[Rfam]
RNA sequence: AUUUCUUUUAAUGCCGCUUCCCCUUUGCUACCGGUUUGUUUUACAAACUCAGCGUAAAAGGGUUUCAUUGCCUCUUUAAAUGGGGUGAGAUCCGGAUGAGUGACGGUGACGCCUUGU
Numbered sequence: 001a002u003u004u005c006u007u008u009u010a011a012u013g014c015c016g017c018u019u020c021c022c023c024u025u026u027g028c029u030a031c032c033g034g035u036u037u038g039u040u041u042u043a044c045a046a047a048c049u050c051a052g053c054g055u056a057a058a059a060g061g062g063u064u065u066c067a068u069u070g071c072c073u074c075u076u077u078a079a080a081u082g083g084g085g086u087g088a089g090a091u092c093c094g095g096a097u098g099a100g101u102g103a104c105g106g107u108g109a110c111g112c113c114u115u116g117u
Base pairs, nucleotide, nucleotide: 006080007079008078010076011075013073015070016069022062023061024060025059026057029054031052033050034049035047036046037045038044039043082113083112085110086109088107

Rfam assigns this 117-nucleotide sequence from Rodentibacter trehalosifermentans to the family "Aggregatibacter sRNA 96". Lineage of the source: Bacteria > Pseudomonadota > Pasteurellales > Pasteurellaceae > Rodentibacter. By type it is an antisense RNA.